[Rfam]
RNA: M-box riboswitch aptamer (ykoK leader)
RNA sequence: AAAAUUCUCAGUUAGGUGAGGUUCCUGCAUAAACAUAGGCCACUGCCCCGAAAUGUCGAGAGACGCCAAGGGGUAGAACAGGUAUUACCGGCAUAAGGUUUUACUUAAGGUGGCUGAGGUUACUCUACGUUAUGCAGUGCUAAAGCUCAACGAGUUAGAGAAGGUU
Numbered sequence: 001a002a003a004a005u006u007c008u009c010a011g012u013u014a015g016g017u018g019a020g021g022u023u024c025c026u027g028c029a030u031a032a033a034c035a036u037a038g039g040c041c042a043c044u045g046c047c048c049c050g051a052a053a054u055g056u057c058g059a060g061a062g063a064c065g066c067c068a069a070g071g072g073g074u075a076g077a078a079c080a081g082g083u084a085u086u087a088c089c090g091g092c093a094u095a096a097g098g099u100u101u102u103a104c105u106u107a108a109g110g111u112g113g114c115u116g117a118g119g120u121u122a123c124u125c126u127a128c129g130u131u132a133u134g135c136a137g138u139g140c141u142a143a144a145g146c147u148c149a150a151c152g153a154g155u156u157a158g159a160g161a162a163g164g165u166u
Base pairs, nucleotide, nucleotide: 005162006161007160008159009158011151012150013096015147016146017145020141021140022139025137026136027135028134029133030132031131032130039114040113041112042111043110045074046073047072048071049070054065055064056063057062081105082104083103084102087099088098089097116125117124118123